[Rfam]
RNA sequence: CAAGUCCCUGUCGGGUAAGGUUUAGCCAACCACCCGUAUCGCGUGUUGCGCCUAUGGCGGAGCUUGUUUUUCAAGCGAACAAGAUAGGUGAAGCGUACACAGAGAAUUAUAUAGGCCAUAGGGGAUACGUGUCCCUUAAGUGCUGGUAUCGCUCCGACAAGUACAGUCUGACUGACGAGGUUUGUAACGCCAUCGAAGUCCAAGCAAAGCAACCGUUAUUCAACGCACAUGAAAGGGCAAGGUUGUGGCGAGUCAGCGGAGUUAUUAAGCC
Numbered sequence: 001c002a003a004g005u006c007c008c009u010g011u012c013g014g015g016u017a018a019g020g021u022u023u024a025g026c027c028a029a030c031c032a033c034c035c036g037u038a039u040c041g042c043g044u045g046u047u048g049c050g051c052c053u054a055u056g057g058c059g060g061a062g063c064u065u066g067u068u069u070u071u072c073a074a075g076c077g078a079a080c081a082a083g084a085u086a087g088g089u090g091a092a093g094c095g096u097a098c099a100c101a102g103a104g105a106a107u108u109a110u111a112u113a114g115g116c117c118a119u120a121g122g123g124g125a126u127a128c129g130u131g132u133c134c135c136u137u138a139a140g141u142g143c144u145g146g147u148a149u150c151g152c153u154c155c156g157a158c159a160a161g162u163a164c165a166g167u168c169u170g171a172c173u174g175a176c177g178a179g180g181u182u183u184g185u186a187a188c189g190c191c192a193u194c195g196a197a198g199u200c201c202a203a204g205c206a207a208a209g210c211a212a213c214c215g216u217u218a219u220u221c222a223a224c225g226c227a228c229a230u231g232a233a234a235g236g237g238c239a240a241g242g243u244u245g246u247g248g249c250g251a252g253u254c255a256g257c258g259g260a261g262u263u264a265u266u267a268a269g270c271c
Base pairs, nucleotide, nucleotide: 012036013035014034015033019031020030021029022028039103040102043100044099045098046097047095048094049090050089051088052087053086054085055084059080148265151262152261153260154259155258156257168256169255170254171253172252173251174200175199176198179194180193181192205250209246210245211244212243213242214241
RNA: Group II catalytic intron D1-D4-6